[Rfam]
RNA: FMN riboswitch aptamer (RFN element)
RNA sequence: AAUAUCCUUCGGGGGUGGGUGGAAAUCCCUACCGGCGGUGAUGAAACCUAUUUGUUUCUUAGUCCGUGACCCAAUUUUUUCUUGAAAAAAUUGGUGGAUCUGGUGAAAAUCCAGAGCCGACAGUUAAAGUCUGGAUGGGAGAAGGAUGAU
Numbered sequence: 001a002a003u004a005u006c007c008u009u010c011g012g013g014g015g016u017g018g019g020u021g022g023a024a025a026u027c028c029c030u031a032c033c034g035g036c037g038g039u040g041a042u043g044a045a046a047c048c049u050a051u052u053u054g055u056u057u058c059u060u061a062g063u064c065c066g067u068g069a070c071c072c073a074a075u076u077u078u079u080u081c082u083u084g085a086a087a088a089a090a091u092u093g094g095u096g097g098a099u100c101u102g103g104u105g106a107a108a109a110u111c112c113a114g115a116g117c118c119g120a121c122a123g124u125u126a127a128a129g130u131c132u133g134g135a136u137g138g139g140a141g142a143a144g145g146a147u148g149a150u
Stems, first nucleotide, its partner, number of pairs: 003148008017029003031130002033119002035067004062117002071094004099115005121133003